[Rfam]
RNA: ZMP/ZTP riboswitch aptamer (pfl RNA motif)
Organism: Paeniglutamicibacter cryotolerans
Nucleotides: 087
Stems, first nucleotide, its partner, number of pairs: 008047005015040002017075005025036004064082002067079002
Number, partner (000 for none) and nucleotide at each position: 001000u002000u003000g004000g005000a006000a007000a008047g009046u010045c011044g012043c013000a014000a015040c016039u017075g018074g019073c020072g021071u022000u023000g024000g025036g026035u027034g028033g029000a030000u031000g032000a033028c034027c035026a036025c037000c038000g039016g040015g041000g042000a043012g044011c045010g046009g047008c048000a049000c050000g051000a052000g053000c054000g055000u056000a057000a058000g059000a060000c061000c062000a063000u064082g065081g066000a067079c068078c069000g070000c071021g072020c073019g074018c075017c076000u077000g078068g079067g080000c081065c082064c083000g084000u085000g086000g087000g